Description: The record is a 273-nucleotide RNA from Thiemannella venezuelensis, which matches "HNH endonuclease-associated RNA and ORF (HEARO) RNA" in Rfam.

RNA sequence: GUCAAGGACCCCCGGUCUGAAGGCCGGGGCUUGAGAUCUCGGCUCUGCCGAGAUCUCAAGCCCGCAUUGACCAGCCCCAGCCAUCAGCGAAUGGAGGUGCCAUUGAUGGCUACGUCCGAUGCACGACAGCGGACCCACCGGCGGGUGCUUCCUCAGCCCGCCGCUCUGGAAUGCACGGGAGCAGACACCCCGGGUCGGGACGGAACGGCCCGUGCAGAUCUGACCGGAAACGGUCGGGUACCGGGUAUCGGACAUGGGCGAGGGGAGACCCGU
Numbered sequence: 001g002u003c004a005a006g007g008a009c010c011c012c013c014g015g016u017c018u019g020a021a022g023g024c025c026g027g028g029g030c031u032u033g034a035g036a037u038c039u040c041g042g043c044u045c046u047g048c049c050g051a052g053a054u055c056u057c058a059a060g061c062c063c064g065c066a067u068u069g070a071c072c073a074g075c076c077c078c079a080g081c082c083a084u085c086a087g088c089g090a091a092u093g094g095a096g097g098u099g100c101c102a103u104u105g106a107u108g109g110c111u112a113c114g115u116c117c118g119a120u121g122c123a124c125g126a127c128a129g130c131g132g133a134c135c136c137a138c139c140g141g142c143g144g145g146u147g148c149u150u151c152c153u154c155a156g157c158c159c160g161c162c163g164c165u166c167u168g169g170a171a172u173g174c175a176c177g178g179g180a181g182c183a184g185a186c187a188c189c190c191c192g193g194g195u196c197g198g199g200a201c202g203g204a205a206c207g208g209c210c211c212g213u214g215c216a217g218a219u220c221u222g223a224c225c226g227g228a229a230a231c232g233g234u235c236g237g238g239u240a241c242c243g244g245g246u247a248u249c250g251g252a253c254a255u256g257g258g259c260g261a262g263g264g265g266a267g268a269c270c271c272g273u
Stems, first nucleotide, its partner, number of pairs: 001071005007065001010029002013026002016023002030060014074259004079111009114253009124243001135169002139163008147269001149267006172216008
By type it is a non-coding RNA gene. The organism belongs to Thiemannella, within Bacteria. The family has 139 seed sequences and 952 matches in Rfam 15.1.